[Rfam]
RNA sequence: GGGACCCUUCCCAACAAAAUCUCAAAUAGUGGCAUUUACACAAGCAAUGGUAUGUAAUGCCCUGUACGAGAUUUGGUUGGUGAGAAGUCUC
Numbered sequence: 001g002g003g004a005c006c007c008u009u010c011c012c013a014a015c016a017a018a019a020u021c022u023c024a025a026a027u028a029g030u031g032g033c034a035u036u037u038a039c040a041c042a043a044g045c046a047a048u049g050g051u052a053u054g055u056a057a058u059g060c061c062c063u064g065u066a067c068g069a070g071a072u073u074u075g076g077u078u079g080g081u082g083a084g085a086a087g088u089c090u091c
Stems, first nucleotide, its partner, number of pairs: 001091005007084003011080005017074007026065004031061006038055003
RNA: mir-786 microRNA precursor family
Organism: Caenorhabditis briggsae